[Rfam]
RNA sequence: UAUAUCAAAUGAUGAUAUACAUAUCAAUCUUAGGACACCUUUGGACACAAUCACAUGAUUGUGAAUGAAAAUAGUUUUUCUUCUGAUGAUAUA
Numbered sequence: 001u002a003u004a005u006c007a008a009a010u011g012a013u014g015a016u017a018u019a020c021a022u023a024u025c026a027a028u029c030u031u032a033g034g035a036c037a038c039c040u041u042u043g044g045a046c047a048c049a050a051u052c053a054c055a056u057g058a059u060u061g062u063g064a065a066u067g068a069a070a071a072u073a074g075u076u077u078u079u080c081u082u083c084u085g086a087u088g089a090u091a092u093a
Base pairs, nucleotide, nucleotide: 001093002092003091004090005089006088007087044048

Small nucleolar RNA snoR31/Z110/Z27: a 93-nucleotide RNA sequence from Solanum lycopersicum. This family contains several related snoRNAs including R31, Z27 and Z110. The organism belongs to Solanum subgen. Lycopersicon, within Eukaryota. The family's consensus secondary structure was predicted with PFOLD. The literature on the family includes a 2001 paper in J Mol Biol by Barneche et al., "Identification of 66 box C/D snoRNAs in Arabidopsis thaliana: extensive gene duplications generated multiple isoforms predicting new ribosomal RNA 2'-O-methylation sites".